Overview
Shown here is a 107-nucleotide RNA sequence, a member of the family "Plant small nucleolar RNA R71". The family's consensus secondary structure was predicted with PFOLD. The family's RNA type in Rfam is C/D-box small nucleolar RNA.
RNA sequence: AAGCCAUGAUGAGGGCAUCGAUUGGUGUAACCCUUGAAACCUUCCCAUGCUUCACAGAAGCUUUCGCCAGUCUUCUGUGAAAAACCAGAAAUCUGAUUUCUGAGUCU
Numbered sequence: 001a002a003g004c005c006a007u008g009a010u011g012a013g014g015g016c017a018u019c020g021a022u023u024g025g026u027g028u029a030a031c032c033c034u035u036g037a038a039a040c041c042u043u044c045c046c047a048u049g050c051u052u053c054a055c056a057g058a059a060g061c062u063u064u065c066g067c068c069a070g071u072c073u074u075c076u077g078u079g080a081a082a083a084a085c086c087a088g089a090a091a092u093c094u095g096a097u098u099u100c101u102g103a104g105u106c107u
Stems, first nucleotide, its partner, number of pairs: 001107001003105002005102002057074002060071001